[Rfam]
RNA: Small Cajal body specific RNA 11
RNA sequence: UCGUCCUGGCUGUUCCCCUCACCAGAGCUGUGGUGGUGGGGUCCUGAGGUGGACGCAGAUCAACUUCUCGUGUUAGGAGGGCUGCCAAAGACAUGUGCAAGCCCUUAAAGGCAAGAGAGGACACU
Numbered sequence: 001u002c003g004u005c006c007u008g009g010c011u012g013u014u015c016c017c018c019u020c021a022c023c024a025g026a027g028c029u030g031u032g033g034u035g036g037u038g039g040g041g042u043c044c045u046g047a048g049g050u051g052g053a054c055g056c057a058g059a060u061c062a063a064c065u066u067c068u069c070g071u072g073u074u075a076g077g078a079g080g081g082c083u084g085c086c087a088a089a090g091a092c093a094u095g096u097g098c099a100a101g102c103c104c105u106u107a108a109a110g111g112c113a114a115g116a117g118a119g120g121a122c123a124c125u
Stems, first nucleotide, its partner, number of pairs: 002055005010048002015041002017038001019036004064120006073110002077106007084098002086095002
Dot-bracket structure: .(((((...((...(((.((((..........)))).).)).....))..)))))........((((((...((..(((((((((((......)).)).)))))))..))....)))))).....